[Rfam]
RNA sequence: UGCAAAUUAUUUUCUUUCUCAUGAUGGUCUUCCAAGUCUCGUAGAGGCUGUGACGAUCCUGCUGAAUGGUUUUACUGAUCGCAGAUCU
Numbered sequence: 001u002g003c004a005a006a007u008u009a010u011u012u013u014c015u016u017u018c019u020c021a022u023g024a025u026g027g028u029c030u031u032c033c034a035a036g037u038c039u040c041g042u043a044g045a046g047g048c049u050g051u052g053a054c055g056a057u058c059c060u061g062c063u064g065a066a067u068g069g070u071u072u073u074a075c076u077g078a079u080c081g082c083a084g085a086u087c088u
Base pairs, nucleotide, nucleotide: 001083002082003081004079
Small nucleolar RNA SNORD35: an 88-nucleotide RNA sequence from Callorhinchus milii. Its family is annotated with RNA processing and nucleolus in the Gene Ontology. U35 is a C/D box snoRNA located in intron 6 of ribosomal protein L13A and intron 3 of ribosomal protein S11 in humans and at homologous positions in mouse and chicken ribosomal protein genes. A search with the family's covariance model found it, with a score of 40 bits. On this family, see Nicoloso et al., J Mol Biol 1996: "Intron-encoded, antisense small nucleolar RNAs: the characterization of nine novel species points to their direct role as guides for the 2'-O-ribose methylation of rRNAs".